[Rfam]
RNA sequence: GCUGGCAUCGUGAUGAUGACUCUUUGCCGUUUACCCAACUGAGCUUUGUGAUGAGCAAUCUUAUAUCUGAUGUGCCAGC
Numbered sequence: 001g002c003u004g005g006c007a008u009c010g011u012g013a014u015g016a017u018g019a020c021u022c023u024u025u026g027c028c029g030u031u032u033a034c035c036c037a038a039c040u041g042a043g044c045u046u047u048g049u050g051a052u053g054a055g056c057a058a059u060c061u062u063a064u065a066u067c068u069g070a071u072g073u074g075c076c077a078g079c
Base pairs, nucleotide, nucleotide: 001079002078003077004076005075006074007073
The record is a 79-nucleotide RNA from Halcyon senegalensis, which matches "Small nucleolar RNA SNORD87" in Rfam.
Its family is annotated with nucleolus and RNA processing in the Gene Ontology.
Rfam classes the family as a C/D-box small nucleolar RNA.
A search with the family's covariance model found it, with a score of 50 bits.
Lineage of the source: Eukaryota > Metazoa > Coraciimorphae > Coraciiformes > Halcyon.
The base pairs follow the family's consensus structure.